RNA sequence: AGGGUAAUAGUUAAUUAUAACAUUUAAUUUGCACUUAAAAAGUAUUGAAUUUAAUUCAAUUUACCUUA
Numbered sequence: 001a002g003g004g005u006a007a008u009a010g011u012u013a014a015u016u017a018u019a020a021c022a023u024u025u026a027a028u029u030u031g032c033a034c035u036u037a038a039a040a041a042g043u044a045u046u047g048a049a050u051u052u053a054a055u056u057c058a059a060u061u062u063a064c065c066u067u068a
Stems, first nucleotide, its partner, number of pairs: 001067007010021004023039005044060005

The record is a 68-nucleotide RNA, which matches "tRNA" in Rfam. Gene Ontology term of the family: triplet codon-amino acid adaptor activity. It is annotated as a transfer RNA.